[Rfam]
RNA: Plastid-rps12 3UTR RNA
Nucleotides: 104
Stems, first nucleotide, its partner, number of pairs: 009023004056094002059092002061085002064082001066080004
Number, partner (000 for none) and nucleotide at each position: 001000g002000g003000u004000u005000u006000u007000c008000g009023u010022u011021g012020g013000u014000g015000c016000a017000a018000a019000u020012c021011c022010a023009a024000g025000c026000a027000u028000c029000u030000c031000a032000a033000u034000u035000u036000g037000u038000u039000u040000g041000a042000g043000a044000u045000g046000a047000g048000a049000a050000g051000c052000a053000a054000c055000c056094c057093c058000c059092c060091c061085a062084u063000u064082g065000u066080u067079a068078g069077c070000a071000a072000a073000u074000a075000a076000a077069g078068u079067u080066a081000u082064c083000c084062a085061u086000g087000a088000a089000g090000c091060g092059g093057g094056g095000g096000a097000a098000a099000u100000a101000g102000u103000a104000c